About this RNA
A member of the RNA family "FMN riboswitch aptamer (RFN element)" from a Coriobacteriaceae bacterium, 134 nucleotides long.
[Rfam]
RNA sequence: CGUCAGUUUCAGGGCGGGGUGGAAGUCCCCACUGGCGGUAACCCCCGAGGGGGAAGCCCGCGAACCGCGUGCGCGCGGCCGACCCGGUGGGAGUCCGGGGCCAACGGUCACAGUCCGGAUGAAAGAAACGGAGU
Numbered sequence: 001c002g003u004c005a006g007u008u009u010c011a012g013g014g015c016g017g018g019g020u021g022g023a024a025g026u027c028c029c030c031a032c033u034g035g036c037g038g039u040a041a042c043c044c045c046c047g048a049g050g051g052g053g054a055a056g057c058c059c060g061c062g063a064a065c066c067g068c069g070u071g072c073g074c075g076c077g078g079c080c081g082a083c084c085c086g087g088u089g090g091g092a093g094u095c096c097g098g099g100g101c102c103a104a105c106g107g108u109c110a111c112a113g114u115c116c117g118g119a120u121g122a123a124a125g126a127a128a129c130g131g132a133g134u
Base pairs, nucleotide, nucleotide: 003132004131006129007128008127009126010125017029018028019027031114032113033103034102035061036060037059038058056101057100065078066077083099084098085097086096087095105117106116107115